[Rfam]
RNA: FMN riboswitch aptamer (RFN element)
Organism: Cellulomonas denverensis
RNA sequence: CACGUGCUCCGGGGUCGGUGAAAUUCCGAGCCGGCGGUGAUAGUCCGCGACCCGCGGCGGUCCGAGGCAACUCGGGACGGCGCGGUUGAUCCGGUGGAAUUCCGGGACCGACGGUCAAAGUCCGGAUGGGAGGAGUCGUG
Numbered sequence: 001c002a003c004g005u006g007c008u009c010c011g012g013g014g015u016c017g018g019u020g021a022a023a024u025u026c027c028g029a030g031c032c033g034g035c036g037g038u039g040a041u042a043g044u045c046c047g048c049g050a051c052c053c054g055c056g057g058c059g060g061u062c063c064g065a066g067g068c069a070a071c072u073c074g075g076g077a078c079g080g081c082g083c084g085g086u087u088g089a090u091c092c093g094g095u096g097g098a099a100u101u102c103c104g105g106g107a108c109c110g111a112c113g114g115u116c117a118a119a120g121u122c123c124g125g126a127u128g129g130g131a132g133g134a135g136u137c138g139u140g
Stems, first nucleotide, its partner, number of pairs: 002139003006136005016028003030121002032110002034048004043108002052085005090106005112124003